[Rfam]
RNA: bZIP non canonical Hac1/Xbp1 intron
Organism: Exophiala dermatitidis
RNA sequence: CACCGUCUCCGGUAUGACACAAUAUCCUGCUGAGAUAUUGUGUGACCUGCAGUGUCAGCCGGAGACGUG
Numbered sequence: 001c002a003c004c005g006u007c008u009c010c011g012g013u014a015u016g017a018c019a020c021a022a023u024a025u026c027c028u029g030c031u032g033a034g035a036u037a038u039u040g041u042g043u044g045a046c047c048u049g050c051a052g053u054g055u056c057a058g059c060c061g062g063a064g065a066c067g068u069g
Stems, first nucleotide, its partner, number of pairs: 001069003005066003010061004021039006044056003